[Rfam]
Shown here is a 69-nucleotide sequence, a member of the family "L2-Alphaproteobacteria ribosomal protein leader".

Nucleotides: 069
Base pairs, nucleotide, nucleotide: 001018002017003016004015006014007013008012027045028044029043030042031041032040033039
Number, partner (000 for none) and nucleotide at each position: 001018g002017g003016c004015c005000a006014c007013c008012c009000u010000c011000g012008g013007g014006g015004g016003g017002c018001u019000u020000u021000a022000c023000c024000a025000c026000a027045g028044g029043c030042g031041g032040a033039g034000c035000a036000u037000u038000g039033c040032u041031u042030u043029g044028u045027c046000g047000c048000u049000u050000a051000a052000g053000c054000a055000a056000a057000c058000g059000g060000a061000a062000g063000a064000c065000a066000g067000a068000a069000a
Rfam classes the family as a cis-regulatory leader. The sequence is in the family's curated seed alignment.